S15-Flavobacteria ribosomal protein leader: a 64-nucleotide RNA from Maribacter antarcticus. The literature on the family includes a 2020 paper in BMC Microbiol by Eckert and Weinberg, "Discovery of 20 novel ribosomal leader candidates in bacteria and archaea". The family's consensus secondary structure is taken from published work. It is one of the family's seed sequences. By type it is a cis-regulatory leader.

RNA sequence: UAUAUUUGCAGCCUGAUUGAAAAUCAUUCAGAUACAUAAAAAUCAUUAAACGAAUAUUGGAAUG
Numbered sequence: 001u002a003u004a005u006u007u008g009c010a011g012c013c014u015g016a017u018u019g020a021a022a023a024u025c026a027u028u029c030a031g032a033u034a035c036a037u038a039a040a041a042a043u044c045a046u047u048a049a050a051c052g053a054a055u056a057u058u059g060g061a062a063u064g
Base pairs, nucleotide, nucleotide: 014030015029016028018026019025